[Rfam]
RNA sequence: GCUCUGUGAUGAGCCCAUGCGUGUCAUCUGAGCCUGGCUUCCCUGUCUUCUCAGCCCCGGGGAGUGUUCUACUUCCCAGGGCUGUCAGCUGGCCUAGCGUGGGAGUCGCAGGCAAAGGAUCACCCUUCGUCUUCUGAGAGC
Numbered sequence: 001g002c003u004c005u006g007u008g009a010u011g012a013g014c015c016c017a018u019g020c021g022u023g024u025c026a027u028c029u030g031a032g033c034c035u036g037g038c039u040u041c042c043c044u045g046u047c048u049u050c051u052c053a054g055c056c057c058c059g060g061g062g063a064g065u066g067u068u069c070u071a072c073u074u075c076c077c078a079g080g081g082c083u084g085u086c087a088g089c090u091g092g093c094c095u096a097g098c099g100u101g102g103g104a105g106u107c108g109c110a111g112g113c114a115a116a117g118g119a120u121c122a123c124c125c126u127u128c129g130u131c132u133u134c135u136g137a138g139a140g141c
Stems, first nucleotide, its partner, number of pairs: 001141004042103005048097001
RNA: Small nucleolar RNA SNORD10
Organism: Leptonychotes weddellii